[Rfam]
RNA: Archaeal large subunit ribosomal RNA, nucleotides 3618 to 4201
RNA sequence: CCCCCAGUGGGGAGAGAAGACCCUGUGGAGCUUUACUGCAGCCAGUUGCUGCGGAGUGGUCUGGAGUACAUAGCGUAGCCGGGAGCCGUCGAUCCAGGUCUCUCCGGGGGCCUGGGGAGGCGCCAAUGUAACACCGGCUACUCCGGACUGCCCCGCUAACCAGGGCCUGACCCUGGGACAACGGCUGGUGGGCAGUUUGGCUGGGGCGGCACUCCUCCGAAAAGAUAUCGGAGGAGCCCAAAGGUCGGCUCAGGCGGGACAGAAACCCGCUGUAGAGUGCAAGGGCAUAAGCCGGCCUGACAGGACCCUCGAACGCAAGGGGUCCUGAGGGGAAACCCGGGCCUAGCGAUCCAUCGGCUCCUACCAGUGGGGGCCGGUGGUGACAGAAAAGUUACCCCAGGGAUAACAGGCUCGUCGCGGGCGAGAGUCCCCAUCGACCCCGCGGCUUGGUACCUCGAUGUCGGCUCUUCCCCUCCUGGCCUCGCAGCAGGGGCCAAGGGUGAGGCUGCUCGCCUAUUAAAGGGGAACGUGAGCUGGGUUUAGACCGUCGUGAGACAGAUCGGUUUCUACCUACUGGGGGUGCG
Numbered sequence: 001c002c003c004c005c006a007g008u009g010g011g012g013a014g015a016g017a018a019g020a021c022c023c024u025g026u027g028g029a030g031c032u033u034u035a036c037u038g039c040a041g042c043c044a045g046u047u048g049c050u051g052c053g054g055a056g057u058g059g060u061c062u063g064g065a066g067u068a069c070a071u072a073g074c075g076u077a078g079c080c081g082g083g084a085g086c087c088g089u090c091g092a093u094c095c096a097g098g099u100c101u102c103u104c105c106g107g108g109g110g111c112c113u114g115g116g117g118a119g120g121c122g123c124c125a126a127u128g129u130a131a132c133a134c135c136g137g138c139u140a141c142u143c144c145g146g147a148c149u150g151c152c153c154c155g156c157u158a159a160c161c162a163g164g165g166c167c168u169g170a171c172c173c174u175g176g177g178a179c180a181a182c183g184g185c186u187g188g189u190g191g192g193c194a195g196u197u198u199g200g201c202u203g204g205g206g207c208g209g210c211a212c213u214c215c216u217c218c219g220a221a222a223a224g225a226u227a228u229c230g231g232a233g234g235a236g237c238c239c240a241a242a243g244g245u246c247g248g249c250u251c252a253g254g255c256g257g258g259a260c261a262g263a264a265a266c267c268c269g270c271u272g273u274a275g276a277g278u279g280c281a282a283g284g285g286c287a288u289a290a291g292c293c294g295g296c297c298u299g300a301c302a303g304g305a306c307c308c309u310c311g312a313a314c315g316c317a318a319g320g321g322g323u324c325c326u327g328a329g330g331g332g333a334a335a336c337c338c339g340g341g342c343c344u345a346g347c348g349a350u351c352c353a354u355c356g357g358c359u360c361c362u363a364c365c366a367g368u369g370g371g372g373g374c375c376g377g378u379g380g381u382g383a384c385a386g387a388a389a390a391g392u393u394a395c396c397c398c399a400g401g402g403a404u405a406a407c408a409g410g411c412u413c414g415u416c417g418c419g420g421g422c423g424a425g426a427g428u429c430c431c432c433a434u435c436g437a438c439c440c441c442g443c444g445g446c447u448u449g450g451u452a453c454c455u456c457g458a459u460g461u462c463g464g465c466u467c468u469u470c471c472c473c474u475c476c477u478g479g480c481c482u483c484g485c486a487g488c489a490g491g492g493g494c495c496a497a498g499g500g501u502g503a504g505g506c507u508g509c510u511c512g513c514c515u516a517u518u519a520a521a522g523g524g525g526a527a528c529g530u531g532a533g534c535u536g537g538g539u540u541u542a543g544a545c546c547g548u549c550g551u552g553a554g555a556c557a558g559a560u561c562g563g564u565u566u567c568u569a570c571c572u573a574c575u576g577g578g579g580g581u582g583c584g
Base pairs, nucleotide, nucleotide: 001580002579003578004577005576006575007574008573010572011571012570014567015566022401023400024399025398027397028396029393030392031391032390033389035196036195037194038193042188043187044186045185046184047183048182051156052155053154054153056151057150058149059148060147061146062145063144064143065142066141067140068139078138079137080136081135082134085121086120087119097112098111100109101108102107160176161175162174163173164172165171199212200210201209202208213235214234215233216232217231218230238341239340244296245295246294247293248292249291250276251275253271254270255269256268257267258266277286278285301327302326303325304324305323306322307321308320309319329338331336352379353378354377355376356375357374359373360372361371362370410451411450412449414448415445416444417443418442419441420440421439425435426434462537463535464534465533466532467529468526469525470524471523472522475500476499479494480493481492482491483490503515504514505513506512543561544560546558547556548555549554